Record summary: Shown here is an 80-nucleotide RNA sequence from Aedes aegypti, a member of the family "mir-965 microRNA precursor family".
RNA sequence: UUCUUCAGGGGAAAAAUGAUACGUUCGUUUUGUGUCUAGGGUUAUGGCUAAAACGAACGUAUCAUUUUUCCCCUGAAGAA
Numbered sequence: 001u002u003c004u005u006c007a008g009g010g011g012a013a014a015a016a017u018g019a020u021a022c023g024u025u026c027g028u029u030u031u032g033u034g035u036c037u038a039g040g041g042u043u044a045u046g047g048c049u050a051a052a053a054c055g056a057a058c059g060u061a062u063c064a065u066u067u068u069u070c071c072c073c074u075g076a077a078g079a080a
Stems, first nucleotide, its partner, number of pairs: 003078005009072003013068002017064005024057009

Lineage of the source: Eukaryota > Dicondylia > Eumetabola > Aedini > Stegomyia.